[Rfam]
RNA sequence: AACCAGGUUGAUUCUGCCUGACGUGGAUGCUAGUUUCAUAGAUUAAGCCAUGCAUGUGUAAGCGAAGCGUAAGUGGAGCGGCGUACGGCUCAGUAACGGGCUACUAUUUGAUCUCCCUGGGCGGAUAUCCUCUGUAAACGGAGGGCAAAACGCAAGACAAGCAGCAAUUUUGUUGGCUGUCUAACGAAAGUGGGGGAGAGUAAGGAGCCAGCCCAUCAGCUAGUAAGUAGGGUAAGGGCCUACUUAGGCAAAUACGGGUACGGGGAAUUAUCGUUUGAUUCCGGAGAGGGAGCCUGAGAGAUGGCUACCGGGUCCAAGGACAACAGCAGGCGCGAAAAUUACCGGAGCCUGAAGUCAGGGCGGUAGUAAGGAGACGUGAGAACAAUGUGGGGGUAAAAAACGCACUGGAAACAGGAGGAAAAGACUGGUGCCAGCACCCGCGGUAAUACCAGCUCCUGGAGUGUCUAUGGUGAUUGCUG
Numbered sequence: 001a002a003c004c005a006g007g008u009u010g011a012u013u014c015u016g017c018c019u020g021a022c023g024u025g026g027a028u029g030c031u032a033g034u035u036u037c038a039u040a041g042a043u044u045a046a047g048c049c050a051u052g053c054a055u056g057u058g059u060a061a062g063c064g065a066a067g068c069g070u071a072a073g074u075g076g077a078g079c080g081g082c083g084u085a086c087g088g089c090u091c092a093g094u095a096a097c098g099g100g101c102u103a104c105u106a107u108u109u110g111a112u113c114u115c116c117c118u119g120g121g122c123g124g125a126u127a128u129c130c131u132c133u134g135u136a137a138a139c140g141g142a143g144g145g146c147a148a149a150a151c152g153c154a155a156g157a158c159a160a161g162c163a164g165c166a167a168u169u170u171u172g173u174u175g176g177c178u179g180u181c182u183a184a185c186g187a188a189a190g191u192g193g194g195g196g197a198g199a200g201u202a203a204g205g206a207g208c209c210a211g212c213c214c215a216u217c218a219g220c221u222a223g224u225a226a227g228u229a230g231g232g233u234a235a236g237g238g239c240c241u242a243c244u245u246a247g248g249c250a251a252a253u254a255c256g257g258g259u260a261c262g263g264g265g266a267a268u269u270a271u272c273g274u275u276u277g278a279u280u281c282c283g284g285a286g287a288g289g290g291a292g293c294c295u296g297a298g299a300g301a302u303g304g305c306u307a308c309c310g311g312g313u314c315c316a317a318g319g320a321c322a323a324c325a326g327c328a329g330g331c332g333c334g335a336a337a338a339u340u341a342c343c344g345g346a347g348c349c350u351g352a353a354g355u356c357a358g359g360g361c362g363g364u365a366g367u368a369a370g371g372a373g374a375c376g377u378g379a380g381a382a383c384a385a386u387g388u389g390g391g392g393g394u395a396a397a398a399a400a401c402g403c404a405c406u407g408g409a410a411a412c413a414g415g416a417g418g419a420a421a422a423g424a425c426u427g428g429u430g431c432c433a434g435c436a437c438c439c440g441c442g443g444u445a446a447u448a449c450c451a452g453c454u455c456c457u458g459g460a461g462u463g464u465c466u467a468u469g470g471u472g473a474u475u476g477c478u479g
Stems, first nucleotide, its partner, number of pairs: 004020005022469010033375005039368002041333001047331003051328003056082002062079002067074002089286003097211001099209004104204001107203002112199007121153003128145007212258003219249003224246008261283004265276004288309002291306003312321003339365001341364003348359004387405003391401001412458006425452004434441002
Shown here is a 479-nucleotide part of an RNA from Pseudoloma neurophilia, a member of the family "Microsporidia small subunit ribosomal RNA".
Rfam links the family to the GO terms structural constituent of ribosome and ribosome.
For this family Rfam cites "Crystal structure of the ribosome at 5.5 A resolution" (Yusupov et al., Science, 2001).
The family's consensus secondary structure is taken from published work.